The family of this 71-nucleotide RNA sequence from Mucilaginibacter mallensis is "tRNA".

[Rfam]
RNA sequence: UUUCCUAUGGUGCAAGGGUAACAUGUCUGAUUCUGGUUCAGAAGAUAGUGGUUCGAAUCCAUUUAGGAAAA
Numbered sequence: 001u002u003u004c005c006u007a008u009g010g011u012g013c014a015a016g017g018g019u020a021a022c023a024u025g026u027c028u029g030a031u032u033c034u035g036g037u038u039c040a041g042a043a044g045a046u047a048g049u050g051g052u053u054c055g056a057a058u059c060c061a062u063u064u065a066g067g068a069a070a071a
Stems, first nucleotide, its partner, number of pairs: 001070007010024003026042005047063005
Dot-bracket structure: (((((((..(((.........))).(((((.......)))))....(((((.......)))))))))))).

Transfer RNA (tRNA) molecules are approximately 80 nucleotides in length. The family's consensus secondary structure is taken from published work. Lineage of the source: Bacteria > Pseudomonadati > Bacteroidota > Sphingobacteriales > Mucilaginibacter.